RNA: tRNA
Organism: Azospirillum sp. TSH58
RNA sequence: GGCCCCGUAGCUCAUCUGGAUAGAGCGACGGUUUCCUAAACCGUAGGCAGCUGGUUCGAGUCCAGCCGGGGUCA
Numbered sequence: 001g002g003c004c005c006c007g008u009a010g011c012u013c014a015u016c017u018g019g020a021u022a023g024a025g026c027g028a029c030g031g032u033u034u035c036c037u038a039a040a041c042c043g044u045a046g047g048c049a050g051c052u053g054g055u056u057c058g059a060g061u062c063c064a065g066c067c068g069g070g071g072u073c074a
Stems, first nucleotide, its partner, number of pairs: 001073007010026004028044005050066005